RNA sequence: CGUUGGCCCUCCAAAGGUCAACACCGAAGAGGCUUGUUUAUCAUUGCCAGGCGUGCGGAUGGAGUAUCCCCAUCCAAUCCAAGGCAGCAUCGUCGGGUGAAGAACCCAUCGCCGCUUCUCGUGUCUCCAUCGCACGAAGCGGGAUGUCGUCUU
Numbered sequence: 001c002g003u004u005g006g007c008c009c010u011c012c013a014a015a016g017g018u019c020a021a022c023a024c025c026g027a028a029g030a031g032g033c034u035u036g037u038u039u040a041u042c043a044u045u046g047c048c049a050g051g052c053g054u055g056c057g058g059a060u061g062g063a064g065u066a067u068c069c070c071c072a073u074c075c076a077a078u079c080c081a082a083g084g085c086a087g088c089a090u091c092g093u094c095g096g097g098u099g100a101a102g103a104a105c106c107c108a109u110c111g112c113c114g115c116u117u118c119u120c121g122u123g124u125c126u127c128c129a130u131c132g133c134a135c136g137a138a139g140c141g142g143g144a145u146g147u148c149g150u151c152u153u
Stems, first nucleotide, its partner, number of pairs: 002022007031048003055135001057133001099118004